[Rfam]
RNA sequence: ACGCUUUGGUAAUCGCUGCAAACCUUGUUUGUAGAGGAAAGUCCAUGCUCGCACAAGCUGAGAUGCUUGUAGUGUUCGUGCCUAGUCAAAAAAUAAGCUAGGGCAGCAUAUUUAUGCUGACGGCAGGGAAAAUACCUAAGUCUUCGGAUAUGGUAUGAAUACUUUGAAAGUGCCACAGUGACGUAGCUUUGUCAGAAAUGACAAGGGUGGAACGAGGUAAACCCCACGAGCGAGAAACCCAAAUUAUGGUAGGGGAACUUUCUCUGAGGAAAUGAACGGAAGAGAAGGACAGAAAUUAUUUUCUGUAGAUAGAUGAUUACCGCCUUAGUACGAGAUGAAAAGUCGCAUGAGUACAAAGGAACAGAACAUGGCUUAUAGAG
Numbered sequence: 001a002c003g004c005u006u007u008g009g010u011a012a013u014c015g016c017u018g019c020a021a022a023c024c025u026u027g028u029u030u031g032u033a034g035a036g037g038a039a040a041g042u043c044c045a046u047g048c049u050c051g052c053a054c055a056a057g058c059u060g061a062g063a064u065g066c067u068u069g070u071a072g073u074g075u076u077c078g079u080g081c082c083u084a085g086u087c088a089a090a091a092a093a094u095a096a097g098c099u100a101g102g103g104c105a106g107c108a109u110a111u112u113u114a115u116g117c118u119g120a121c122g123g124c125a126g127g128g129a130a131a132a133u134a135c136c137u138a139a140g141u142c143u144u145c146g147g148a149u150a151u152g153g154u155a156u157g158a159a160u161a162c163u164u165u166g167a168a169a170g171u172g173c174c175a176c177a178g179u180g181a182c183g184u185a186g187c188u189u190u191g192u193c194a195g196a197a198a199u200g201a202c203a204a205g206g207g208u209g210g211a212a213c214g215a216g217g218u219a220a221a222c223c224c225c226a227c228g229a230g231c232g233a234g235a236a237a238c239c240c241a242a243a244u245u246a247u248g249g250u251a252g253g254g255g256a257a258c259u260u261u262c263u264c265u266g267a268g269g270a271a272a273u274g275a276a277c278g279g280a281a282g283a284g285a286a287g288g289a290c291a292g293a294a295a296u297u298a299u300u301u302u303c304u305g306u307a308g309a310u311a312g313a314u315g316a317u318u319a320c321c322g323c324c325u326u327a328g329u330a331c332g333a334g335a336u337g338a339a340a341a342g343u344c345g346c347a348u349g350a351g352u353a354c355a356a357a358g359g360a361a362c363a364g365a366a367c368a369u370g371g372c373u374u375a376u377a378g379a380g
Base pairs, nucleotide, nucleotide: 004380005379006378008321009320010319011318012317013316014315016034017033018032019031020030021029039374040373041372043371044370045369046368047367048234049233050232051231052230053070054069055068056067057066058065076229077228078227079226080225081102082101083100084099085098086097103121104119105118106117107116108115109114122224123223125164126163127162133155134154135153136152140149141148142147170222171221172218173217174216187206188205189204190203191202192201193200194199238254239253240252258288259287260286261285262284263283264282289306290305291304292303293302294301323359324358325357326356328354329353330352331351

Bacterial RNase P class B: a 380-nucleotide RNA from Niallia circulans. The family's RNA type in Rfam is ribozyme. The family's consensus secondary structure is taken from published work. Ribonuclease P (RNase P) is a ubiquitous endoribonuclease, found in archaea, bacteria and eukarya as well as chloroplasts and mitochondria. Its best characterised activity is the generation of mature 5'-ends of tRNAs by cleaving the 5'-leader elements of precursor-tRNAs. Cellular RNase Ps are ribonucleoproteins.